[Rfam]
Nucleotides: 191
Stems, first nucleotide, its partner, number of pairs: 007185005016082005024074001032067006086115003089111007116142011144176012
Number, partner (000 for none) and nucleotide at each position: 001000a002000g003000g004000u005000g006000u007185g008184g009183u010182a011181g012000a013000g014000g015000c016082g017081c018080g019079a020078a021000u022000g023000a024074c025000a026000u027000a028000a029000g030000u031000a032067c033066u034065a035064u036063g037062g038000a039000g040000a041000a042000g043000g044000u045000u046000g047000c048000g049000g050000c051000a052000a053000c054000u055000g056000a057000u058000g059000a060000g061000a062037c063036c064035a065034u066033a067032g068000a069000a070000a071000a072000g073000g074024g075000g076000a077000u078020u079019u080018c081017g082016c083000c084000g085000a086115a087114g088113c089111a090110c091109a092108a093107a094106a095105a096000g097000c098000a099000g100000c101000g102000u103000a104000a105095u106094u107093u108092u109091u110090g111089u112000u113088g114087c115086u116142g117141g118140u119139c120138c121137u122136a123135u124134a125133g126132u127000c128000a129000a130000c131000a132126a133125c134124u135123g136122u137121g138120g139119g140118a141117c142116u143000g144176u145175c146174a147173u148172a149171c150170g151169a152168u153167a154166g155165u156000u157000u158000u159000a160000u161000u162000a163000a164000a165155a166154c167153u168152a169151u170150c171149g172148u173147a174146u175145g176144g177000a178000g179000a180000a181011c182010u183009a184008c185007u186000c187000c188000c189000a190000a191000c
Rfam assigns this 191-nucleotide RNA from Desulfosporosinus acididurans to the family "Lysine riboswitch aptamer". The match comes from Rfam's covariance-model search (110 bits).